[Rfam]
This 97-nucleotide sequence from Salinicoccus roseus belongs to the Rfam family "TPP riboswitch aptamer (THI element)".
Taxonomically the source falls in Salinicoccus (Bacteria, Bacillota, Caryophanales, Staphylococcaceae).

RNA sequence: CCGAUGCACUGGGGGCGCCUUAGGCUGAGACGGAUAUACCGGACCCUUACCACCCGAUCUGGAUAACACCAGCGUGGGGAAGUGCAGCAUUGUAUGU
Numbered sequence: 001c002c003g004a005u006g007c008a009c010u011g012g013g014g015g016c017g018c019c020u021u022a023g024g025c026u027g028a029g030a031c032g033g034a035u036a037u038a039c040c041g042g043a044c045c046c047u048u049a050c051c052a053c054c055c056g057a058u059c060u061g062g063a064u065a066a067c068a069c070c071a072g073c074g075u076g077g078g079g080a081a082g083u084g085c086a087g088c089a090u091u092g093u094a095u096g097u
Base pairs, nucleotide, nucleotide: 006085007084008083009082010081011047012046013045014044016041017025018024019023032040033039053078054077055076056075059072060071061070062069